Shown here is an 82-nucleotide RNA sequence from Silvimonas terrae, a member of the family "Pseudomonas sRNA P9". The family's RNA type in Rfam is non-coding RNA gene. The source organism's lineage runs through Bacteria, Pseudomonadota, Betaproteobacteria, Chitinibacteraceae and Silvimonas. About the family: This small RNA (sRNA) was computationally identified in the genome of the opportunistic pathogen Pseudomonas aeruginosa and its expression verified by northern blot analysis. The family's consensus secondary structure was predicted with RNAalifold.
RNA sequence: CUGAUUAUUUCCACCAUUCGCACCAUGGUGGGUUAGCGCGCGUCAGUACAAACAAAGCAACCCGCCCCAACAGGCGGGUUUU
Number, nucleotide and partner (000 for none) at each position: 001c000002u000003g000004a000005u000006u000007a000008u000009u000010u000011c031012c030013a029014c028015c027016a026017u025018u000019c000020g000021c000022a000023c000024c000025a017026u016027g015028g014029u013030g012031g011032g000033u000034u000035a000036g000037c000038g000039c000040g000041c000042g000043u000044c000045a000046g000047u000048a000049c000050a000051a000052a000053c000054a000055a000056a000057g000058c000059a080060a079061c078062c077063c076064g075065c074066c073067c000068c000069a000070a000071c000072a000073g066074g065075c064076g063077g062078g061079u060080u059081u000082u000